[Rfam]
RNA sequence: GGGGCGUUGUCGCAACAGUAAUUCAACGUAGUACGAGAGGAACUGUUGAUUCGGACCACGGGUACAUGCGGCUGGCUGAACAGCCAAUGCCGCGACGCUACCAUCCGCUGGAUUAUGGCUGAACGCCUCUAAGCCAGAAUCCAUGCUAGAAGCGACGAUGACUGCCGCUUCCGAGGUGCCUCGAACACCAAUAGGCCUGCGGGCCCCAGGUCACAGCGCGUAGCCACACGGCGCGCGCGCAAGCGCGCGCGCCCGGGCCUACCAAGCUCUCUUGCAAACGUUGGAAGCGAUAGAUCUCUUGUAGACGACUUGAUUACAGAACGCGGGAUUGUACGCAGUAGAGUGGCCUUGUUGCCACGAUCUGCUGAGAUUUAUCCGUGGUUCUUUGCAUCUGU
Numbered sequence: 001g002g003g004g005c006g007u008u009g010u011c012g013c014a015a016c017a018g019u020a021a022u023u024c025a026a027c028g029u030a031g032u033a034c035g036a037g038a039g040g041a042a043c044u045g046u047u048g049a050u051u052c053g054g055a056c057c058a059c060g061g062g063u064a065c066a067u068g069c070g071g072c073u074g075g076c077u078g079a080a081c082a083g084c085c086a087a088u089g090c091c092g093c094g095a096c097g098c099u100a101c102c103a104u105c106c107g108c109u110g111g112a113u114u115a116u117g118g119c120u121g122a123a124c125g126c127c128u129c130u131a132a133g134c135c136a137g138a139a140u141c142c143a144u145g146c147u148a149g150a151a152g153c154g155a156c157g158a159u160g161a162c163u164g165c166c167g168c169u170u171c172c173g174a175g176g177u178g179c180c181u182c183g184a185a186c187a188c189c190a191a192u193a194g195g196c197c198u199g200c201g202g203g204c205c206c207c208a209g210g211u212c213a214c215a216g217c218g219c220g221u222a223g224c225c226a227c228a229c230g231g232c233g234c235g236c237g238c239g240c241a242a243g244c245g246c247g248c249g250c251g252c253c254c255g256g257g258c259c260u261a262c263c264a265a266g267c268u269c270u271c272u273u274g275c276a277a278a279c280g281u282u283g284g285a286a287g288c289g290a291u292a293g294a295u296c297u298c299u300u301g302u303a304g305a306c307g308a309c310u311u312g313a314u315u316a317c318a319g320a321a322c323g324c325g326g327g328a329u330u331g332u333a334c335g336c337a338g339u340a341g342a343g344u345g346g347c348c349u350u351g352u353u354g355c356c357a358c359g360a361u362c363u364g365c366u367g368a369g370a371u372u373u374a375u376c377c378g379u380g381g382u383u384c385u386u387u388g389c390a391u392c393u394g395u
Stems, first nucleotide, its partner, number of pairs: 006159008017147003021051001023049006052107004061099002067094005073086005109143003116136005167288007292393004297313002301309001318385005324378003328371002335365004340361001343358005

Notes: Rfam assigns this 395-nucleotide part of an RNA from Porphyridium purpureum to the family "Eukaryotic large subunit ribosomal RNA". NCBI's taxonomy places the organism under Eukaryota, Rhodophyta, Bangiophyceae, Porphyridiaceae, Porphyridium.